FMN riboswitch aptamer (RFN element): a 141-nucleotide sequence from Treponema sp. J25. Pairs were carried over by alignment from the consensus structure, which is taken from published work. The organism belongs to Treponema, within Bacteria.
RNA sequence: CAGAGUCUUCAGGGCGGGGUGCAAGUCCCCACCGGCGGUAUAGCCCGCGAGCAAGGAAAGCAGGACCGGUGGUCCCUUUCUGCGCAGGAUUCGGUGAAACUCCGAGGCCGACAGUAAUAGUCUGGAUGGAAGAAGAAUCUG
Numbered sequence: 001c002a003g004a005g006u007c008u009u010c011a012g013g014g015c016g017g018g019g020u021g022c023a024a025g026u027c028c029c030c031a032c033c034g035g036c037g038g039u040a041u042a043g044c045c046c047g048c049g050a051g052c053a054a055g056g057a058a059a060g061c062a063g064g065a066c067c068g069g070u071g072g073u074c075c076c077u078u079u080c081u082g083c084g085c086a087g088g089a090u091u092c093g094g095u096g097a098a099a100c101u102c103c104g105a106g107g108c109c110g111a112c113a114g115u116a117a118u119a120g121u122c123u124g125g126a127u128g129g130a131a132g133a134a135g136a137a138u139c140u141g
Stems, first nucleotide, its partner, number of pairs: 003139002006136005017029003031121002033110002035048004043108002090106005112124003